[Rfam]
RNA sequence: GCGCCAGUCAUUGGGGAGUAGCCUCCCUCCGAAUGCGAGAGGGGCCGGACGUCAACAGACUUGGGACUUCGCGUCCCAUGGCGCCGGCGGAUCCACCUGGAUCUGGCGAGACCUUUGACCGUGCAGCCUCCGUCCAGGCCGGGGAGGGUGCGCGGUCAAACGUGUUCUCGUCCGGCCGGAGUUU
Dot-bracket structure: .........................(((...........))).(((((.(((((.......(((((.......)))))))))))))))((.(((...................................................................................))).)).

Overview:
Rfam assigns this 184-nucleotide sequence from Ramlibacter cellulosilyticus to the family "Manganese Mn2+ riboswitch aptamer (yybP-ykoY)". A search with the family's covariance model found it, with a score of 73 bits.